[Rfam]
The record is a 375-nucleotide sequence from Henriciella algicola, which matches "Bacterial RNase P class A" in Rfam. A search with the family's covariance model found it, with a score of 310 bits. Rfam links the family to the GO terms ribonuclease P activity, dimeric ribonuclease P complex and tRNA processing. Lineage of the source: Bacteria > Pseudomonadota > Hyphomonadales > Hyphomonadaceae > Henriciella. It is annotated as a ribozyme. Ribonuclease P (RNase P) is a ubiquitous endoribonuclease, found in archaea, bacteria and eukarya as well as chloroplasts and mitochondria.

RNA sequence: CCAGACGGCCGGGCAGUCGCUGGCAUGGCUCACAAGGCCAUGCUGGAGGAAAGUCCGGGCUCCAUGGAAACAGGGCGGCGGAUAAUGUCCGCCCGGCGUGAGCCGAGGGAAAGUGCCACAGAGAGCAGACCGCCCCAGAUCUGAUCUGGGGUAAGGGUGAAAGGGUGGGGUAAGAGCCCACCGCGGGGGCGGUAACGUCCCUGGCAUGGUAAACCCCGCCCGGAGCAAGACCGAAUAGGGGGUGCGCAUGGCCCGUUUCCAGCCCGCGCCCCGGGUGUGUCGCGUGAGGGUCCUGGCGACAGGGCUCCCAGAGGAAUGACUGCACAGGCGCCGCAAGGCGCUGGACAGAACCCGGCUUACAGGCCGUCUGGUCAG
Numbered sequence: 001c002c003a004g005a006c007g008g009c010c011g012g013g014c015a016g017u018c019g020c021u022g023g024c025a026u027g028g029c030u031c032a033c034a035a036g037g038c039c040a041u042g043c044u045g046g047a048g049g050a051a052a053g054u055c056c057g058g059g060c061u062c063c064a065u066g067g068a069a070a071c072a073g074g075g076c077g078g079c080g081g082a083u084a085a086u087g088u089c090c091g092c093c094c095g096g097c098g099u100g101a102g103c104c105g106a107g108g109g110a111a112a113g114u115g116c117c118a119c120a121g122a123g124a125g126c127a128g129a130c131c132g133c134c135c136c137a138g139a140u141c142u143g144a145u146c147u148g149g150g151g152u153a154a155g156g157g158u159g160a161a162a163g164g165g166u167g168g169g170g171u172a173a174g175a176g177c178c179c180a181c182c183g184c185g186g187g188g189g190c191g192g193u194a195a196c197g198u199c200c201c202u203g204g205c206a207u208g209g210u211a212a213a214c215c216c217c218g219c220c221c222g223g224a225g226c227a228a229g230a231c232c233g234a235a236u237a238g239g240g241g242g243u244g245c246g247c248a249u250g251g252c253c254c255g256u257u258u259c260c261a262g263c264c265c266g267c268g269c270c271c272c273g274g275g276u277g278u279g280u281c282g283c284g285u286g287a288g289g290g291u292c293c294u295g296g297c298g299a300c301a302g303g304g305c306u307c308c309c310a311g312a313g314g315a316a317u318g319a320c321u322g323c324a325c326a327g328g329c330g331c332c333g334c335a336a337g338g339c340g341c342u343g344g345a346c347a348g349a350a351c352c353c354g355g356c357u358u359a360c361a362g363g364c365c366g367u368c369u370g371g372u373c374a375g
Base pairs, nucleotide, nucleotide: 001371002370003369004368005367006366007365008364009363010362011360013323014322015321016320017319018318020046021045022044023043024042025041026040027039028038051358052357053356055355056354057353058352059351060225061224062223063222069258070257073221074220075219076218077217078092079091080090081089082088093107094105095104096103097102108216109215113214114213115210116209117208130156131155132152133151134150135149136148137147138146139145140144164182165181166180167179168178169177183205184203185202186201187200188199189198190197191196229281230280231279239272240271241270242269243268244267250264251263252262288307289306290305291304292303293302294301295300
Dot-bracket structure: (((((((((((.((((((.(((((((((.........)))))))))....[[[.[[[[[((((.....[[..((((((((((.....)))))(((((....)))).)((...(((((............(((((((((((...)))))))))..)).......((((((.......))))))(((((((((....)))))))).)..)))..)))))))))))))...(((.......((((((.....(((....]]...)))..))))))......)))......((((((((....))))))))..........))))))...........................]]]]]]]].).))))))))))....